[Rfam]
Description:
Shown here is a 75-nucleotide RNA from Brasilonema sennae, a member of the family "Cyano-1 RNA". The organism belongs to Brasilonema sennae, within Bacteria.

RNA sequence: GUGUGUGUGAGGAGCAAGUGUAAACAAAAAGCAUUUGGGAUGGAAACACGGUAACACUCCUGAGUGCUUUUUGUU
Numbered sequence: 001g002u003g004u005g006u007g008u009g010a011g012g013a014g015c016a017a018g019u020g021u022a023a024a025c026a027a028a029a030a031g032c033a034u035u036u037g038g039g040a041u042g043g044a045a046a047c048a049c050g051g052u053a054a055c056a057c058u059c060c061u062g063a064g065u066g067c068u069u070u071u072u073g074u075u
Stems, first nucleotide, its partner, number of pairs: 028070005035063005041056002